[Rfam]
RNA sequence: CAAAACAAGUAGAAGUAUCCACUUCUCGCCUUUGGACAUUGAGUUACUAAGGUAUAUAAGUAAGACGUAGUAAAGUUAAAAUAGAGUAUUUUAACGUGUUCUUAUAGAUUAAGUGGAUGGUUCUACACUAUCCACUUUUUUUUAUUUAU
Numbered sequence: 001c002a003a004a005a006c007a008a009g010u011a012g013a014a015g016u017a018u019c020c021a022c023u024u025c026u027c028g029c030c031u032u033u034g035g036a037c038a039u040u041g042a043g044u045u046a047c048u049a050a051g052g053u054a055u056a057u058a059a060g061u062a063a064g065a066c067g068u069a070g071u072a073a074a075g076u077u078a079a080a081a082u083a084g085a086g087u088a089u090u091u092u093a094a095c096g097u098g099u100u101c102u103u104a105u106a107g108a109u110u111a112a113g114u115g116g117a118u119g120g121u122u123c124u125a126c127a128c129u130a131u132c133c134a135c136u137u138u139u140u141u142u143u144a145u146u147u148a149u
Base pairs, nucleotide, nucleotide: 011026012025013024014023015022016021028053029052030051034047036044037043112136113135114134115133116132117131118130119129120128121127
Ribosomal protein L20 leader: a 149-nucleotide RNA sequence from Natranaerovirga hydrolytica. This family is a putative r-protein leader autoregulatory structure found in B. subtilis and other low-GC Gram-positive bacteria. It is located in the 5' untranslated regions of mRNAs encoding initiation factor 3 followed by ribosomal proteins L35 and L20 (infC-rpmI-rplT). A Rho-independent transcription terminator structure that is probably involved in regulation is included at the 3' end. The family's RNA type in Rfam is cis-regulatory leader. The source organism's lineage runs through Bacteria, Bacillota, Clostridia, Lachnospirales and Natranaerovirga.